Shown here is a 163-nucleotide RNA from Pan troglodytes, a member of the family "U1 spliceosomal RNA". Rfam describes the family as follows. U1 is a small nuclear RNA (snRNA) component of the spliceosome (involved in pre-mRNA splicing). Its 5' end forms complementary base pairs with the 5' splice junction, thus defining the 5' donor site of an intron. There are significant differences in sequence and secondary structure between metazoan and yeast U1 snRNAs, the latter being much longer (568 nucleotides as compared to 164 nucleotides in human). Nevertheless, secondary structure predictions suggest that all U1 snRNAs share a 'common core' consisting of helices I, II, the proximal region of III, and IV. This family does not contain the larger yeast sequences. It is annotated as a spliceosomal small nuclear RNA.

RNA sequence: GUACUCACCUGGCAGGGGAGAUGCCGUGAUCACGAAAGUGGUCUUCCUGGGGUGAGGCUUAUCCACUGCACUCCGGACGUGCUGACCCCUGCAAUUUCCCCAAAAGUGGGAAACUCGGCUGCAUCAUCUGUGGUCAUGGGGGCUGUGUUCAUGCUUUCCCCUG
Numbered sequence: 001g002u003a004c005u006c007a008c009c010u011g012g013c014a015g016g017g018g019a020g021a022u023g024c025c026g027u028g029a030u031c032a033c034g035a036a037a038g039u040g041g042u043c044u045u046c047c048u049g050g051g052g053u054g055a056g057g058c059u060u061a062u063c064c065a066c067u068g069c070a071c072u073c074c075g076g077a078c079g080u081g082c083u084g085a086c087c088c089c090u091g092c093a094a095u096u097u098c099c100c101c102a103a104a105a106g107u108g109g110g111a112a113a114c115u116c117g118g119c120u121g122c123a124u125c126a127u128c129u130g131u132g133g134u135c136a137u138g139g140g141g142g143c144u145g146u147g148u149u150c151a152u153g154c155u156u157u158c159c160c161c162u163g
Base pairs, nucleotide, nucleotide: 012122013121014120015119016048017047018046019045020044023042024041025040026039027038049090050089051088052087054086056083057082058081060079062077063076064075092117094115095113096112097111099109100108138162139161140160141159142158145154146153147152